RNA sequence: AUCACAUUUCGGCAAACCAUUCGAAAGGAUGGGACGCAAAGCUUCCAGUCUGCCAGCACUGCUUAACUAGUCAACACUAGUGCUUAAGAUAACGGGGUUGCCACU
Numbered sequence: 001a002u003c004a005c006a007u008u009u010c011g012g013c014a015a016a017c018c019a020u021u022c023g024a025a026a027g028g029a030u031g032g033g034a035c036g037c038a039a040a041g042c043u044u045c046c047a048g049u050c051u052g053c054c055a056g057c058a059c060u061g062c063u064u065a066a067c068u069a070g071u072c073a074a075c076a077c078u079a080g081u082g083c084u085u086a087a088g089a090u091a092a093c094g095g096g097g098u099u100g101c102c103a104c105u
Stems, first nucleotide, its partner, number of pairs: 012037002017032006040099004045095002048090003055084007
RNA: c-di-GMP-I riboswitch aptamer